[Rfam]
RNA sequence: GGCACAAUAGUGUCGGGCCUGACGACCCCGCUCCCCCGAGUCGCCCAACGGAGUUUGGCUCAACUCUAAAAAGAAAAUAAGCCGA
Numbered sequence: 001g002g003c004a005c006a007a008u009a010g011u012g013u014c015g016g017g018c019c020u021g022a023c024g025a026c027c028c029c030g031c032u033c034c035c036c037c038g039a040g041u042c043g044c045c046c047a048a049c050g051g052a053g054u055u056u057g058g059c060u061c062a063a064c065u066c067u068a069a070a071a072a073g074a075a076a077a078u079a080a081g082c083c084g085a
Stems, first nucleotide, its partner, number of pairs: 001032003011024005044058002047055002
RNA: Insect-specific Flavivirus exoribonuclease-resistant RNA element